[Rfam]
RNA: U4 spliceosomal RNA
RNA sequence: AUCUAAGUGCAAGGGCUUUACGCUUACCAGUGAAGAUUCGUCUGAGGUAGCGUUUUUGCUAGUUGAAAACUACAACUAUGACCGCUCCAACUGGUCUUCGGAUCGGUUGGGAAUUUUUGUAUCCCAUCUACUGCUG
Numbered sequence: 001a002u003c004u005a006a007g008u009g010c011a012a013g014g015g016c017u018u019u020a021c022g023c024u025u026a027c028c029a030g031u032g033a034a035g036a037u038u039c040g041u042c043u044g045a046g047g048u049a050g051c052g053u054u055u056u057u058g059c060u061a062g063u064u065g066a067a068a069a070c071u072a073c074a075a076c077u078a079u080g081a082c083c084g085c086u087c088c089a090a091c092u093g094g095u096c097u098u099c100g101g102a103u104c105g106g107u108u109g110g111g112a113a114u115u116u117u118u119g120u121a122u123c124c125c126a127u128c129u130a131c132u133g134c135u136g
Stems, first nucleotide, its partner, number of pairs: 020053005026048003034043003086111011